[Rfam]
A member of the RNA family "small nucleolar RNA snoR126" from Vanilla planifolia, 90 nucleotides long. The organism belongs to Vanilla, within Eukaryota. The match comes from Rfam's covariance-model search (59 bits). The family's RNA type in Rfam is C/D-box small nucleolar RNA.
RNA sequence: UGGUGGUGAUGACUAUCAUCGUUUCUCGAUUCUGAUGUAGACCAUUUUUUUACAAACCUUCUUGAUGAUUUUUAUGCGUGUCUGAACUAU
Numbered sequence: 001u002g003g004u005g006g007u008g009a010u011g012a013c014u015a016u017c018a019u020c021g022u023u024u025c026u027c028g029a030u031u032c033u034g035a036u037g038u039a040g041a042c043c044a045u046u047u048u049u050u051u052a053c054a055a056a057c058c059u060u061c062u063u064g065a066u067g068a069u070u071u072u073u074a075u076g077c078g079u080g081u082c083u084g085a086a087c088u089a090u
Stems, first nucleotide, its partner, number of pairs: 001089004